[Rfam]
RNA sequence: UGGCAGGAUGUGCAUUGUAGGCCUACGCCGCAAGCGGCUAGCCAACAAUGCAAUGCGCUUACUCGCCCAACGGGCUCUACGCUGUCCUGCUCUGCGAGGCU
Dot-bracket structure: .((((((((..((((((..((...(.((((....)))))..))..)))))).....((......((((...)))).....)).))))))))..........
Numbered sequence: 001u002g003g004c005a006g007g008a009u010g011u012g013c014a015u016u017g018u019a020g021g022c023c024u025a026c027g028c029c030g031c032a033a034g035c036g037g038c039u040a041g042c043c044a045a046c047a048a049u050g051c052a053a054u055g056c057g058c059u060u061a062c063u064c065g066c067c068c069a070a071c072g073g074g075c076u077c078u079a080c081g082c083u084g085u086c087c088u089g090c091u092c093u094g095c096g097a098g099g100c101u
Stems, first nucleotide, its partner, number of pairs: 002091008012051006020043002025039001027038004057082002065075004
traJ-II RNA: a 101-nucleotide RNA from Salinicola sp. MIT1003. The family's consensus secondary structure is taken from published work. NCBI's taxonomy places the organism under Bacteria, Pseudomonadati, Gammaproteobacteria, Oceanospirillales, Salinicola. It scores 60 bits against the family's covariance model.